[Rfam]
RNA sequence: CUACUCUGGUUUCUCUUCAGAUCGAAUAAAUCUUUCGCCUUUUACUAAAGAUUUCCGUGGAGGGGAAAAAUCAUGAGUUUCAGCUGUUAAUUACCAUUAGUGAUUUUGUUAUUAUU
Number, nucleotide and partner (000 for none) at each position: 001c000002u000003a078004c077005u076006c075007u000008g000009g000010u067011u066012u065013c064014u063015c062016u061017u060018c059019a058020g000021a000022u000023c000024g000025a000026a000027u000028a054029a053030a052031u051032c050033u049034u048035u047036c000037g000038c000039c000040u000041u000042u000043u000044a000045c000046u000047a035048a034049a033050g032051a031052u030053u029054u028055c000056c000057g000058u019059g018060g017061a016062g015063g014064g013065g012066a011067a010068a000069a000070a000071u000072c000073a000074u000075g006076a005077g004078u003079u000080u000081c000082a000083g000084c000085u000086g000087u000088u000089a000090a000091u000092u000093a000094c000095c000096a000097u000098u000099a000100g000101u000102g116103a115104u114105u000106u000107u000108g000109u000110u000111a000112u000113u000114a104115u103116u102
RNA: U5 spliceosomal RNA
Organism: Aquarana catesbeiana